The record is a 93-nucleotide sequence from Branchiostoma belcheri, which matches "mir-2060 microRNA precursor family" in Rfam. The match comes from Rfam's covariance-model search (91 bits). Taxonomically the source falls in Branchiostoma (Eukaryota, Metazoa, Chordata, Amphioxiformes).
RNA sequence: GUUUAUCUGUGUGUGGAUGGUGUUCAGUACCAAGGACAGGUGUGUUUACUUGUGUGUGGAUGGUGUUCAGCACCAAGGACAUGUGCUUUAUUU
Numbered sequence: 001g002u003u004u005a006u007c008u009g010u011g012u013g014u015g016g017a018u019g020g021u022g023u024u025c026a027g028u029a030c031c032a033a034g035g036a037c038a039g040g041u042g043u044g045u046u047u048a049c050u051u052g053u054g055u056g057u058g059g060a061u062g063g064u065g066u067u068c069a070g071c072a073c074c075a076a077g078g079a080c081a082u083g084u085g086c087u088u089u090a091u092u093u
Stems, first nucleotide, its partner, number of pairs: 004085003008081003018075007026067007034055001036053007